[Rfam]
A member of the RNA family "Clostridiales-1 RNA" from Firmicutes bacterium CAG:56, 167 nucleotides long. The family has 194 seed sequences and 1,172 matches in Rfam 15.1. Taxonomically the source falls in Bacillota (Bacteria, Bacillati). By type it is a small RNA.
RNA sequence: UGAGUCAAAGGGACAAAUGGACACAAAACGGAUGCUUGCAUACGUGUUUGUGUCUAUGGGGACCGCAAAAACAUGAGAAAGCAGCCAUUUUUGUAAAAAAAUGAGCGGAUUUCGAAUGUUUUCGUGAUUUUGAGAGUGCAAGGCACGGAAAAAUCACGUAUGACUCA
Dot-bracket structure: (((((((...(..(..((((((((.((..(.(((....))).)...)).))))))))..)..)....(((((((..((((...(((((((((....))))))).))...))))..)))))))..(((((((....((((...))))...)))))))....)))))))